[Rfam]
This 153-nucleotide sequence from Ruegeria pomeroyi belongs to the Rfam family "FMN riboswitch aptamer (RFN element)". It scores 108 bits against the family's covariance model.
RNA sequence: UGUCGUUCUCAGGGCGGGGCGAAAUUCCCCACCGGCGGUAUGCGGGGCUUGAUCCCGCCAGCCCGCGAGCGGCCCCGGCCCACGUCCGGGGUGUCAGCAGAUCUGGUGAGAGACCAGAGCCGACGGUUACAGUCCGGAUGAAAGAGAACGCAC
Number, nucleotide and partner (000 for none) at each position: 001u000002g000003u000004c150005g149006u148007u147008c146009u145010c144011a000012g000013g000014g000015c000016g000017g029018g028019g027020c000021g000022a000023a000024a000025u000026u000027c019028c018029c017030c000031a133032c132033c122034g121035g066036c065037g064038g063039u000040a000041u000042g000043c000044g000045g000046g000047g000048c000049u000050u000051g000052a000053u000054c000055c000056c000057g000058c000059c000060a000061g120062c119063c038064c037065g036066c035067g000068a000069g098070c097071g000072g000073c000074c000075c000076c000077g000078g000079c000080c000081c000082a000083c000084g000085u000086c000087c000088g000089g000090g000091g000092u000093g000094u000095c000096a000097g070098c069099a000100g000101a000102u118103c117104u116105g115106g114107u000108g000109a000110g000111a000112g000113a000114c106115c105116a104117g103118a102119g062120c061121c034122g033123a000124c136125g135126g134127u000128u000129a000130c000131a000132g032133u031134c126135c125136g124137g000138a000139u000140g000141a000142a000143a000144g010145a009146g008147a007148a006149c005150g004151c000152a000153c000